[Rfam]
RNA sequence: UGAUCCGGUACCAGGGGCGGUCUCCCCCAAGGAACACGACGGUGAAAGAACCCUGCCGAGCCCCACCCCUCCCGCCCGCGACGGCCGCUCACUCGCGCGAGGGAACAUCACCGACUCGACUGGAUCCAGGGGCCGUUGCCCGCCCUACGCUCGGCGCGACACAACCGCAGACAUGCGACGGCCCUCGCCGGGACGCCAAUCCCAGUGCGAGGGCCUGACCACCGAGGAAGUAGGAGCUUCCCG
Dot-bracket structure: ......(((......((((.....................................................))))............((.(((....))).))...............((((...........................)))).........................(((((.(((.((((......))))...))).))))).....)))..(((((......)))))..